[Rfam]
RNA sequence: UUACAAUUAAAGGAUAUUUCUGGUGACUGCGACGAAACGGAAAUAUCUCUUAAUUGUUGGGU
Numbered sequence: 001u002u003a004c005a006a007u008u009a010a011a012g013g014a015u016a017u018u019u020c021u022g023g024u025g026a027c028u029g030c031g032a033c034g035a036a037a038c039g040g041a042a043a044u045a046u047c048u049c050u051u052a053a054u055u056g057u058u059g060g061g062u
Stems, first nucleotide, its partner, number of pairs: 003057008012048010024034002
The family of this 62-nucleotide RNA from Merluccius polli is "mir-7552 microRNA precursor family". Lineage of the source: Eukaryota > Neoteleostei > Paracanthopterygii > Gadoidei > Merluccius. Its family is annotated with miRNA-mediated post-transcriptional gene silencing and RISC complex in the Gene Ontology. A search with the family's covariance model found it, with a score of 67 bits.